The record is a 104-nucleotide RNA sequence from Neobacillus thermocopriae, which matches "SAM riboswitch aptamer (S box leader)" in Rfam.
RNA sequence: UUCUUAUCAAGAGAGGCGGAGGGACUGGCCCAGUGAAGCCCGGCAACCGGUAUUUGAAACACGGUGCUAAAUCCAGCAGAGCUUUUAGCUCUGAAAGAUAAGAA
Numbered sequence: 001u002u003c004u005u006a007u008c009a010a011g012a013g014a015g016g017c018g019g020a021g022g023g024a025c026u027g028g029c030c031c032a033g034u035g036a037a038g039c040c041c042g043g044c045a046a047c048c049g050g051u052a053u054u055u056g057a058a059a060c061a062c063g064g065u066g067c068u069a070a071a072u073c074c075a076g077c078a079g080a081g082c083u084u085u086u087a088g089c090u091c092u093g094a095a096a097g098a099u100a101a102g103a104a
Stems, first nucleotide, its partner, number of pairs: 001104008013041001015040003021031003025076004042068004047064002049060001051058001072096001077093006